[Rfam]
Background:
Rfam assigns this 82-nucleotide RNA sequence from Vanilla planifolia to the family "mir-172 microRNA precursor family". Its family is annotated with miRNA-mediated post-transcriptional gene silencing and RISC complex in the Gene Ontology. A search with the family's covariance model found it, with a score of 80 bits. About the family: mir-172 has been experimentally verified in Arabidopsis thaliana. This family is thought to target mRNAs coding for APETALA2-like transcription factors. The mature sequence is excised from the 3' arm of the hairpin. Lineage of the source: Eukaryota > Asparagales > Orchidaceae > Vanilleae > Vanilla. On this family, see Jones-Rhoades and Bartel, Mol Cell 2004: "Computational Identification of Plant MicroRNAs and Their Targets, Including a Stress-Induced miRNA".
RNA sequence: AUGCCUGCAGAUGCUGCAUCAUCAAGAUUCACAUGAAUUUUUGCUUAAAUGAGAAUCUUGAUGAUGCUGCAUCAGCAAUUAU
Numbered sequence: 001a002u003g004c005c006u007g008c009a010g011a012u013g014c015u016g017c018a019u020c021a022u023c024a025a026g027a028u029u030c031a032c033a034u035g036a037a038u039u040u041u042u043g044c045u046u047a048a049a050u051g052a053g054a055a056u057c058u059u060g061a062u063g064a065u066g067c068u069g070c071a072u073c074a075g076c077a078a079u080u081a082u
Base pairs, nucleotide, nucleotide: 010073011072012071013070014069016067017066018065019064020063021062022061023060024059025058026057027056028055029054030053032051033050
Dot-bracket structure: .........(((((.(((((((((((((((.((................)).))))))))))))))).))))).........